RNA sequence: GGCUGGUCCGAAGGUAGUGAGUUAUCUCAACUGGUUGUUCACAAUUGCAGAUGGAACUCCUUGUUCUACUCUUUUCCUGCUUCUCACUGCUGCACCCGGCUGGUCUUUU
Numbered sequence: 001g002g003c004u005g006g007u008c009c010g011a012a013g014g015u016a017g018u019g020a021g022u023u024a025u026c027u028c029a030a031c032u033g034g035u036u037g038u039u040c041a042c043a044a045u046u047g048c049a050g051a052u053g054g055a056a057c058u059c060c061u062u063g064u065u066c067u068a069c070u071c072u073u074u075u076c077c078u079g080c081u082u083c084u085c086a087c088u089g090c091u092g093c094a095c096c097c098g099g100c101u102g103g104u105c106u107u108u109u
Base pairs, nucleotide, nucleotide: 001105002104003103004102005101006100007099008098010097014093015092016088017087018086019085020084021083030070033067034066
Dot-bracket structure: ((((((((.(...((((((((........(..((...............................))..)............))))))...))...)))))))))....
Background
Rfam assigns this 109-nucleotide RNA sequence from Macaca fascicularis to the family "Y RNA". The family's RNA type in Rfam is non-coding RNA gene. Taxonomically the source falls in Macaca (Eukaryota, Eumetazoa, Craniata, Cercopithecoidea). The match comes from Rfam's covariance-model search (58 bits).